Notes
A member of the RNA family "Guanidine-I riboswitch aptamer" from Paenibacillus donghaensis, 100 nucleotides long.
RNA sequence: AUAAAUGUUUUCUAGGGUUCCGCGAUUUCUAUAUCGGCUGGUCCAAGAGAAAACUCACAUCCUUUAGGACGUGUCACGGAGGGAUAAAAGCCCGGGAGAU
Numbered sequence: 001a002u003a004a005a006u007g008u009u010u011u012c013u014a015g016g017g018u019u020c021c022g023c024g025a026u027u028u029c030u031a032u033a034u035c036g037g038c039u040g041g042u043c044c045a046a047g048a049g050a051a052a053a054c055u056c057a058c059a060u061c062c063u064u065u066a067g068g069a070c071g072u073g074u075c076a077c078g079g080a081g082g083g084a085u086a087a088a089a090g091c092c093c094g095g096g097a098g099a100u
Base pairs, nucleotide, nucleotide: 007054008053009052010051011050012049015044016043020041021040022038023036024035025034026033056073057072058071060069061068062067075095077098081093082092083091
A search with the family's covariance model found it, with a score of 83 bits.
The pairing is the family consensus, mapped onto this sequence.
This family represents a conserved RNA structure found upstream of the ykkC and yxkD genes in Bacillus subtilis and related genes in other bacteria.
On this family, see Reiss et al., Structure 2017: "Structural Basis for Ligand Binding to the Guanidine-I Riboswitch".